[Rfam]
RNA sequence: UAAGUCCUCUACAUGGUAAAGGCUAGCGACCAGCCAUGACCCCGAGUCAUGCGUCGGCCAUCCGUGAGGAUGGCGGCGAAGCGUUGACAGGGGGUGUGCAGGCCGGGCUAUUGAGCUCCGAAAUCACCUCAUCCGGGUUGCCGACCUUGUGGUCUGAGGGGGAAGGCAUCACGUUGUGCCGCACUACUCGCAAGUGGCCCAGCGGACCCGCGGAGUCGAAGAACC
Numbered sequence: 001u002a003a004g005u006c007c008u009c010u011a012c013a014u015g016g017u018a019a020a021g022g023c024u025a026g027c028g029a030c031c032a033g034c035c036a037u038g039a040c041c042c043c044g045a046g047u048c049a050u051g052c053g054u055c056g057g058c059c060a061u062c063c064g065u066g067a068g069g070a071u072g073g074c075g076g077c078g079a080a081g082c083g084u085u086g087a088c089a090g091g092g093g094g095u096g097u098g099c100a101g102g103c104c105g106g107g108c109u110a111u112u113g114a115g116c117u118c119c120g121a122a123a124u125c126a127c128c129u130c131a132u133c134c135g136g137g138u139u140g141c142c143g144a145c146c147u148u149g150u151g152g153u154c155u156g157a158g159g160g161g162g163a164a165g166g167c168a169u170c171a172c173g174u175u176g177u178g179c180c181g182c183a184c185u186a187c188u189c190g191c192a193a194g195u196g197g198c199c200c201a202g203c204g205g206a207c208c209c210g211c212g213g214a215g216u217c218g219a220a221g222a223a224c225c
Base pairs, nucleotide, nucleotide: 012038013037014036015035016034021031022030024193026191027190040093041092042091043090046088047087048086049085050083051082052078053077054076055075057074058073059072060071061070062069063068112219113217115216116215117214118213119212120211134210135209136208137207138206139205140167141166142165145161146160147159148158172204173203174202175201176200178198179197180196181195182194
Dot-bracket structure: ...........(((((....((.[.[[..))..))))).((((..((((((((((.(((((((....)))))))))))...)).)))).))))..................((.((((((.............(((((((((..((((.........))))...)))....(((((.(((((.......]].]))))).)))))))))))))))))).)......